[Rfam]
RNA: L31-Gammaproteobacteria ribosomal protein leader
RNA sequence: CGUAUGGUGCUUAGCGGUAAAGACUGACUAAGUGGCGAUGCGGCCUAAUAUAGAGGU
Dot-bracket structure: (((((.((..((((((((....)))).))))...)).)))))...............